RNA sequence: AUACUUACCUGGCGCAGGGGUCGCAUUGAUCAAGAAGGAUGCACCCCCAGGGCGAGGCUUGCCAUUGCACUCCGGCUUGCUGAACCUUGCGAUUCCCCCAAACGUGGGGAACUCGGGCGUAUUAUUUAUGGUAGCGGAGAUCUGCGUUCGCGCUAUCUCCU
Numbered sequence: 001a002u003a004c005u006u007a008c009c010u011g012g013c014g015c016a017g018g019g020g021u022c023g024c025a026u027u028g029a030u031c032a033a034g035a036a037g038g039a040u041g042c043a044c045c046c047c048c049a050g051g052g053c054g055a056g057g058c059u060u061g062c063c064a065u066u067g068c069a070c071u072c073c074g075g076c077u078u079g080c081u082g083a084a085c086c087u088u089g090c091g092a093u094u095c096c097c098c099c100a101a102a103c104g105u106g107g108g109g110a111a112c113u114c115g116g117g118c119g120u121a122u123u124a125u126u127u128a129u130g131g132u133a134g135c136g137g138a139g140a141u142c143u144g145c146g147u148u149c150g151c152g153c154u155a156u157c158u159c160c161u
Base pairs, nucleotide, nucleotide: 012120013119014118015117017047018046019045020044021043023042024041025040026039027038049087050086051085055081056080061076062075063074090115091114092113093111094109095108097107098106136160137159138158139157140156144153145152146151
Shown here is a 161-nucleotide sequence from Strongylocentrotus purpuratus, a member of the family "U1 spliceosomal RNA". Its Rfam clan is "U1 clan". NCBI's taxonomy places the organism under Eukaryota, Deuterostomia, Echinozoa, Camarodonta, Strongylocentrotus. It is one of the family's seed sequences. Pairs were carried over by alignment from the consensus structure, which is taken from published work. By type it is a spliceosomal small nuclear RNA.